[Rfam]
RNA sequence: CUGCUGUCCUAGGGGAGCCUGCACUGGCUGAGACUCCACCGCCAUUUGGCGUUGGUAACCCUUAGAACCUGAUCCGGGUCAUGCCGGCGAAGGGAAGGAUGUAGCCUAACAA
Numbered sequence: 001c002u003g004c005u006g007u008c009c010u011a012g013g014g015g016a017g018c019c020u021g022c023a024c025u026g027g028c029u030g031a032g033a034c035u036c037c038a039c040c041g042c043c044a045u046u047u048g049g050c051g052u053u054g055g056u057a058a059c060c061c062u063u064a065g066a067a068c069c070u071g072a073u074c075c076g077g078g079u080c081a082u083g084c085c086g087g088c089g090a091a092g093g094g095a096a097g098g099a100u101g102u103a104g105c106c107u108a109a110c111a112a
Stems, first nucleotide, its partner, number of pairs: 006100005011062004016056001017028003035055002038052002068093003074087004